[Rfam]
RNA sequence: AUGCCAUUAUUUCUGCUGCAAAACUGAACCUAGUUCUGCAGCUGUUGGUCAGUUAUAGUGGCAAGAGCAAGGCCAUUGUACGAGCCUUGAGACCACCCUAUGGUUUUCAAGGUCCCUGAAGAUGGCUACAGGU
Numbered sequence: 001a002u003g004c005c006a007u008u009a010u011u012u013c014u015g016c017u018g019c020a021a022a023a024c025u026g027a028a029c030c031u032a033g034u035u036c037u038g039c040a041g042c043u044g045u046u047g048g049u050c051a052g053u054u055a056u057a058g059u060g061g062c063a064a065g066a067g068c069a070a071g072g073c074c075a076u077u078g079u080a081c082g083a084g085c086c087u088u089g090a091g092a093c094c095a096c097c098c099u100a101u102g103g104u105u106u107u108c109a110a111g112g113u114c115c116c117u118g119a120a121g122a123u124g125g126c127u128a129c130a131g132g133u
Base pairs, nucleotide, nucleotide: 003062004061005060006059007058015042016041017040018039019038072126073125074124075123084113085112086111087110088109089108090107092105094103